[Rfam]
RNA sequence: CCCGAUGUUUCCUCAUCGGUAGCCUACCGUCACAUGCGUAGCUGGUAACGGCUGGGUGUGAAGCUGACGGAACAAUGUAGCCCAUAAUCCAAAACCGCGAGGUCAAGGAAGAACUGCCAGCAUAAAGCGGAAGGGCGC
Numbered sequence: 001c002c003c004g005a006u007g008u009u010u011c012c013u014c015a016u017c018g019g020u021a022g023c024c025u026a027c028c029g030u031c032a033c034a035u036g037c038g039u040a041g042c043u044g045g046u047a048a049c050g051g052c053u054g055g056g057u058g059u060g061a062a063g064c065u066g067a068c069g070g071a072a073c074a075a076u077g078u079a080g081c082c083c084a085u086a087a088u089c090c091a092a093a094a095c096c097g098c099g100a101g102g103u104c105a106a107g108g109a110a111g112a113a114c115u116g117c118c119a120g121c122a123u124a125a126a127g128c129g130g131a132a133g134g135g136c137g138c
Stems, first nucleotide, its partner, number of pairs: 002019006028069005033060005039054006088109003095102002114130004
This 138-nucleotide sequence from a Peptococcaceae bacterium belongs to the Rfam family "Group II catalytic intron D1-D4-7". From the family's description: Group II introns are found in rRNA, tRNA and mRNA of organelles in fungi, plants and protists, and also in mRNA in bacteria. The family has 244 seed sequences and 1,296 matches in Rfam 15.1. For this family Rfam cites "The ins and outs of group II introns" (Bonen and Vogel, Trends Genet, 2001). The pairing is the family consensus, mapped onto this sequence.